A member of the RNA family "SAM riboswitch aptamer (S box leader)" from Anaeromicrobium sediminis, 110 nucleotides long. The source organism's lineage runs through Bacteria, Bacillati, Bacillota, Clostridia and Anaeromicrobium. The family's consensus secondary structure is taken from published work. The match comes from Rfam's covariance-model search (85 bits). On this family, see Grundy and Henkin, Mol Microbiol 1998: "The S box regulon: a new global transcription termination control system for methionine and cysteine biosynthesis genes in gram-positive bacteria".
[Rfam]
RNA sequence: AUCUCAUCAAGAGAGACAGAGGGAACAGGCCCUGUGACGUCUCAGCAACCAGCAACUAAAACGUUGAAAAGGUGCUAAAUCCUGCAGAAUCAUUAUCUGGAAGAUGAGAG
Numbered sequence: 001a002u003c004u005c006a007u008c009a010a011g012a013g014a015g016a017c018a019g020a021g022g023g024a025a026c027a028g029g030c031c032c033u034g035u036g037a038c039g040u041c042u043c044a045g046c047a048a049c050c051a052g053c054a055a056c057u058a059a060a061a062c063g064u065u066g067a068a069a070a071g072g073u074g075c076u077a078a079a080u081c082c083u084g085c086a087g088a089a090u091c092a093u094u095a096u097c098u099g100g101a102a103g104a105u106g107a108g109a110g
Stems, first nucleotide, its partner, number of pairs: 002109007013043005021032003026084004044076004049072002053066002080102001085099004